A member of the RNA family "L31-Gammaproteobacteria ribosomal protein leader" from Vibrio rhizosphaerae, 52 nucleotides long.
Rfam's curators put it in the seed alignment.
RNA sequence: CAUGUGGUGUCCGGCAACGAUCCGGAUAGCGACAUGGCCCGAUUUUUGAGGU
Number, nucleotide and partner (000 for none) at each position: 001c036002a035003u034004g033005u032006g000007g030008u029009g000010u000011c025012c024013g023014g022015c019016a000017a000018c000019g015020a000021u000022c014023c013024g012025g011026a000027u000028a000029g008030c007031g000032a005033c004034a003035u002036g001037g000038c000039c000040c000041g000042a000043u000044u000045u000046u000047u000048g000049a000050g000051g000052u000
Its Rfam clan is "Ribosomal Protein L31 Leader clan". By type it is a cis-regulatory leader. The literature on the family includes a 2020 paper in BMC Microbiol by Eckert and Weinberg, "Discovery of 20 novel ribosomal leader candidates in bacteria and archaea".